[Rfam]
RNA sequence: AAACAUUGAGGGCGGAACAGGCAGCCGCCACACCCUUUGGGUCUGAAAGAGAUGUAAGAUUGUCACCUUACCUUUGUUU
Numbered sequence: 001a002a003a004c005a006u007u008g009a010g011g012g013c014g015g016a017a018c019a020g021g022c023a024g025c026c027g028c029c030a031c032a033c034c035c036u037u038u039g040g041g042u043c044u045g046a047a048a049g050a051g052a053u054g055u056a057a058g059a060u061u062g063u064c065a066c067c068u069u070a071c072c073u074u075u076g077u078u079u
Stems, first nucleotide, its partner, number of pairs: 001079005008072001011029005020064004031049001032042004054071005
Dot-bracket structure: (((((..(..(((((....[[[[.))))).(((((...))))......)....(((((..]]]]..))))))..)))))
The family of this 79-nucleotide RNA sequence is "skipping-rope RNA". The family's consensus secondary structure is taken from published work. By type it is a small RNA.